[Rfam]
RNA sequence: UCCCAACCCUUCUUGGCACUGGUAGAAUUCACUGAAUUCUUUUAAGUUCAGUGAAUUACCAGUCUCAAAAAUUGUGAGUG
Numbered sequence: 001u002c003c004c005a006a007c008c009c010u011u012c013u014u015g016g017c018a019c020u021g022g023u024a025g026a027a028u029u030c031a032c033u034g035a036a037u038u039c040u041u042u043u044a045a046g047u048u049c050a051g052u053g054a055a056u057u058a059c060c061a062g063u064c065u066c067a068a069a070a071a072u073u074g075u076g077a078g079u080g
Stems, first nucleotide, its partner, number of pairs: 003078001006075002010071001013068004018063001020061003025056001029054006
The family of this 80-nucleotide RNA sequence from Capitella teleta is "mir-263 microRNA precursor family".
Its Rfam clan is "mir-182 clan".
Taxonomically the source falls in Capitella (Eukaryota, Eumetazoa, Spiralia, Sedentaria).
Gene Ontology terms of the family: miRNA-mediated post-transcriptional gene silencing and RISC complex.